A member of the RNA family "mir-142 microRNA precursor family" from Clupea harengus, 85 nucleotides long. The source organism's lineage runs through Eukaryota, Chordata, Actinopterygii, Clupeiformes and Clupea. The family has 37 seed sequences and 1,555 matches in Rfam 15.1.
RNA sequence: CAGUGUAGUCAACCAUAAAGUAGAAAGCACUAUUAAACUAUUCUACACAGUGUAGUGUUUCCUACUUUAUGGAUGACUGCACUGU
Numbered sequence: 001c002a003g004u005g006u007a008g009u010c011a012a013c014c015a016u017a018a019a020g021u022a023g024a025a026a027g028c029a030c031u032a033u034u035a036a037a038c039u040a041u042u043c044u045a046c047a048c049a050g051u052g053u054a055g056u057g058u059u060u061c062c063u064a065c066u067u068u069a070u071g072g073a074u075g076a077c078u079g080c081a082c083u084g085u
Stems, first nucleotide, its partner, number of pairs: 014071010026059008